The record is a 50-nucleotide sequence from Eubacterium ruminantium, which matches "Streptococcus sRNA SpF36" in Rfam.
Pairs were carried over by alignment from the consensus structure, which was predicted with mfold.

[Rfam]
RNA sequence: CAAAAAAAUCUGAUCACAAAUGUGGUCAGAUUUUUUUGUUUGGAAGAUCA
Numbered sequence: 001c002a003a004a005a006a007a008a009u010c011u012g013a014u015c016a017c018a019a020a021u022g023u024g025g026u027c028a029g030a031u032u033u034u035u036u037u038g039u040u041u042g043g044a045a046g047a048u049c050a
Stems, first nucleotide, its partner, number of pairs: 004035014